[Rfam]
RNA sequence: ACAAAGGCUCUUUUCAGAGCCACCCACAGAUUUCACAACGAGAGCU
Numbered sequence: 001a002c003a004a005a006g007g008c009u010c011u012u013u014u015c016a017g018a019g020c021c022a023c024c025c026a027c028a029g030a031u032u033u034c035a036c037a038a039c040g041a042g043a044g045c046u
Stems, first nucleotide, its partner, number of pairs: 006021006
Histone 3' UTR stem-loop: a 46-nucleotide sequence from Sula dactylatra. The mRNAs of metazoan histone genes lack a poly-A tail. 3' end processing occurs at a site between a highly conserved stem-loop (modelled by this family) and a purine rich region around 20 nts downstream (the histone downstream element, or HDE). The stem-loop is bound by a 31 kDa stem-loop binding protein (SLBP - also termed the histone hairpin binding protein, or HBP). Together with U7 snRNA binding of the HDE, SLBP binding nucleate s the formation of the processing complex. The family's consensus secondary structure is taken from published work. The match comes from Rfam's covariance-model search (39 bits). Lineage of the source: Eukaryota > Vertebrata > Archosauria > Dinosauria > Sula.